The record is a 79-nucleotide RNA sequence from Caenorhabditis bovis, which matches "SmY spliceosomal RNA" in Rfam. Pairs were carried over by alignment from the consensus structure, which is taken from published work. The organism belongs to Caenorhabditis, within Eukaryota.
RNA sequence: UCGUUCAAUAUAAAUUAUCGCGGGCCUUCCAUAAGACCCCGUAGCCAAUUUUUGGGAUCCCUAGCAUUUGUUAGGGAUA
Numbered sequence: 001u002c003g004u005u006c007a008a009u010a011u012a013a014a015u016u017a018u019c020g021c022g023g024g025c026c027u028u029c030c031a032u033a034a035g036a037c038c039c040c041g042u043a044g045c046c047a048a049u050u051u052u053u054g055g056g057a058u059c060c061c062u063a064g065c066a067u068u069u070g071u072u073a074g075g076g077a078u079a
Base pairs, nucleotide, nucleotide: 022039023038024037026035027034028033057078058077059076060075061074062073063072064071065070